A member of the RNA family "ZMP/ZTP riboswitch aptamer (pfl RNA motif)" from Leifsonia aquatica, 99 nucleotides long.
The source organism's lineage runs through Bacteria, Actinomycetota, Actinomycetes, Leifsonia and Leifsonia aquatica.
The family's consensus secondary structure is taken from published work.

RNA sequence: UGGGCGAGUCGCGACUGGCGCUCAGAUGGUCACCAUCGGGGAGCGACGACGGUACCUCGAAAGCAUGGGUGGAUUCGGCCGCGCGCCUGGGUCGAUACG
Numbered sequence: 001u002g003g004g005c006g007a008g009u010c011g012c013g014a015c016u017g018g019c020g021c022u023c024a025g026a027u028g029g030u031c032a033c034c035a036u037c038g039g040g041g042a043g044c045g046a047c048g049a050c051g052g053u054a055c056c057u058c059g060a061a062a063g064c065a066u067g068g069g070u071g072g073a074u075u076c077g078g079c080c081g082c083g084c085g086c087c088u089g090g091g092u093c094g095a096u097a098c099g
Stems, first nucleotide, its partner, number of pairs: 003050001005048001008047005015040002017087005026036004076094005